RNA sequence: AUGCAUCUAUCUGACAUACCUGUAGCAGGUACUGUCUACUGCUAAAGUUUCCACCACAGAUGUAAGAAAAAAAAAGGUCCUUAUGCUUUUUGUCUGUGAUUGUGGCAGCCAAGAUUGACUAGAGGAAUGCAGAG
Dot-bracket structure: .(((((((...((..(.((...(((.(((.....))).))).....)).).))....))))))).............(((((...(..(((..((((.......))))...)))..)....)))))........
A member of the RNA family "Small nucleolar RNA SNORA31" from Macaca mulatta, 134 nucleotides long. A reference for the family is Huttenhofer et al. (2001), "RNomics: an experimental approach that identifies 201 candidates for novel, small, non-messenger RNAs in mouse", EMBO J. The base pairs follow the family's consensus structure, which was predicted with RNAalifold. Its family is annotated with nucleolus and RNA processing in the Gene Ontology. ACA31 (SNORA31) belongs to the H/ACA class of snoRNAs which are thought to guide the sites of modification of uridines to pseudouridines. ACA31 is predicted to guide the pseudouridylation of U3713 in 28S rRNA and U218 in 18S rRNA. This family includes the mouse homologue snoMBI-161. It scores 42 bits against the family's covariance model.